[Rfam]
RNA sequence: UAAAAAUAUUGGCAAACUUAUAGAAAUAUAAGGACGCAAAGUUAGAAGUCGAAAGAUUAAUAAUAAUCAAAGGUGGUUCGACUGCUACG
Numbered sequence: 001u002a003a004a005a006a007u008a009u010u011g012g013c014a015a016a017c018u019u020a021u022a023g024a025a026a027u028a029u030a031a032g033g034a035c036g037c038a039a040a041g042u043u044a045g046a047a048g049u050c051g052a053a054a055g056a057u058u059a060a061u062a063a064u065a066a067u068c069a070a071a072g073g074u075g076g077u078u079c080g081a082c083u084g085c086u087a088c089g
Stems, first nucleotide, its partner, number of pairs: 012037002017032006040083004045079003048074003055068004

The family of this 89-nucleotide sequence from Blautia liquoris is "c-di-GMP-I riboswitch aptamer". Lineage of the source: Bacteria > Bacillota > Lachnospirales > Lachnospiraceae > Blautia. From the family's description: GEMM was predicted in a large-scale screen for bacterial structured RNA regulatory elements. It scores 65 bits against the family's covariance model.